6A RNA: a 53-nucleotide RNA sequence.

RNA sequence: AGAUUUGGUCGUAGAGCCACGACCAAGCAAAUCAAAAGAAAGCUCACGAGAGA
Numbered sequence: 001a002g003a004u005u006u007g008g009u010c011g012u013a014g015a016g017c018c019a020c021g022a023c024c025a026a027g028c029a030a031a032u033c034a035a036a037a038g039a040a041a042g043c044u045c046a047c048g049a050g051a052g053a
Stems, first nucleotide, its partner, number of pairs: 006025006014045004